The family of this 471-nucleotide RNA from Chloropsis hardwickii is "Vertebrate telomerase RNA".
The literature on the family includes a 2000 paper in Cell by Chen et al., "Secondary structure of vertebrate telomerase RNA".
The base pairs follow the family's consensus structure, which is taken from published work.
The family's RNA type in Rfam is non-coding RNA gene.
Clan: Telomerase clan.
Gene Ontology terms of the family: telomerase catalytic core complex, telomere maintenance via telomerase and telomerase activity.
Telomerase is a ribonucleoprotein reverse transcriptase that synthesises telomeric DNA. Telomerase RNAs differ greatly in sequence and structure between vertebrates, ciliates and yeasts, but they share a 5' pseudoknot structure close to the template sequence. Vertebrate telomerase RNAs have a 3' H/ACA snoRNA-like domain.
[Rfam]
RNA sequence: UGUGCCGGGGUGGGCAGGCCCUGCGGCCAACUAACCCUAAUGGCGGCCGCGCCCCUCACGCUCGCCCGCUGUUUUACUCGCUGACUUUCAGCGGGCAAAGGGAGCGGCUUAGGGAAAGGGGGUGGGAGAGAGGGGGAAAAGAGUUCCGGCCUCAAAAAAAAAAAAAAAAAAAAGCCAGCGAGGGGGAUCCACACCCCGGCCCACCCUGGGGUCCCUGUCCCUUCUCCGCAACCGGGGAACGCUCCCGCCCUCGCCCCUCGUGGAGGCCGCGGUCGGCGGGCUCGGCGCCGCUGCCGCCGCGAAGAGUUCGUCUCUGUCAGCCUCGGCGGCGGCCGGGAGCAGAGGGCCGGCGCGCCCACCCUGGGCAGCCGGGGGGCCCCAGCAGAGCAAAACGGGCGCGGCGCCGCUGGGCGCUGAGCAGCCGCCGCCCCCUGAGACGUGGGGUGCGCGGAGGGCGCCGCCCCGACACCC
Dot-bracket structure: .....(.(((..(.....((((............................((.((........((((((((........[[[[.[[[[))))))))....)).))................................................................]]].].]]]]...)))).....)..))).)......(((((((...............((..((((.....(((((((...(((((............(((((.((((.(((.....)))...))))))))).((((.....)))).........)))))....)))))))......)))).))......................)))))))...........((((..((((((................((((...((((........))))...))))..))))))))))........